[Rfam]
Nucleotides: 077
Base pairs, nucleotide, nucleotide: 001076002075003074004073005072006071010067011066012065013064014063015062016061017060018059019058022056023055024054025053026052027051028050029049030048031047
Number, partner (000 for none) and nucleotide at each position: 001076g002075u003074g004073a005072u006071g007000a008000g009000a010067a011066u012065u013064g014063u015062g016061a017060u018059a019058u020000g021000u022056a023055g024054c025053a026052c027051u028050g029049g030048u031047c032000g033000u034000u035000u036000g037000a038000a039000g040000a041000a042000a043000u044000u045000c046000c047031g048030g049029c050028c051027a052026g053025u054024g055023c056022u057000c058019a059018u060017a061016u062015u063014a064013c065012a066011a067010u068000c069000a070000c071006c072005a073004u074003u075002a076001c077000u

MIR6145 microRNA precursor family: a 77-nucleotide RNA from Nicotiana tabacum. It scores 62 bits against the family's covariance model. Rfam links the family to the GO terms RISC complex and miRNA-mediated post-transcriptional gene silencing.